[Rfam]
Shown here is a 225-nucleotide RNA from Zygosaccharomyces rouxii, a member of the family "Small nucleolar RNA snR31". It scores 132 bits against the family's covariance model. A reference for the family is Dandekar and Tollervey (1993), "Identification and functional analysis of a novel yeast small nucleolar RNA", Nucleic Acids Res. By type it is an H/ACA-box small nucleolar RNA. Rfam links the family to the GO terms RNA processing and nucleolus.
Nucleotides: 225
Stems, first nucleotide, its partner, number of pairs: 017106008026077006032070002034067004038061004046054002078098001082093002121218003125214002134204008149175002152172001154170005
Number, partner (000 for none) and nucleotide at each position: 001000g002000a003000a004000u005000c006000a007000a008000u009000u010000u011000a012000u013000u014000a015000u016000a017106c018105c019104a020103u021102a022101c023100g024099u025000u026077c027076u028075u029074g030073c031072u032070g033069g034067c035066g036065u037064c038061a039060u040059c041058u042000u043000a044000u045000u046054c047053u048000u049000c050000a051000a052000u053047g054046g055000a056000u057000g058041a059040g060039g061038u062000u063000c064037g065036a066035u067034g068000c069033c070032c071000u072031g073030g074029c075028g076027a077026g078098u079000u080000u081000g082093a083092u084000u085000c086000u087000c088000u089000c090000a091000a092083a093082u094000a095000u096000u097000u098078g099024a100023c101022g102021u103020a104019u105018g106017g107000c108000a109000g110000a111000a112000c113000a114000a115000u116000u117000u118000u119000a120000u121218g122217c123216a124000a125214g126213a127000a128000g129000u130000a131000u132000c133000u134204c135203c136202a137201g138200c139199u140198g141197c142000u143000g144000a145000u146000a147000a148000u149175g150174g151000a152172c153000c154170g155169g156168a157167g158166g159000c160000c161000u162000u163000u164000c165000u166158c167157c168156u169155c170154u171000g172152g173000a174150c175149c176000g177000c178000c179000u180000a181000u182000u183000a184000a185000a186000a187000a188000a189000a190000a191000u192000c193000u194000g195000a196000u197141g198140c199139a200138g201137c202136u203135g204134g205000u206000c207000a208000u209000u210000c211000a212000u213126u214125c215000u216123u217122g218121c219000u220000a221000c222000a223000g224000a225000a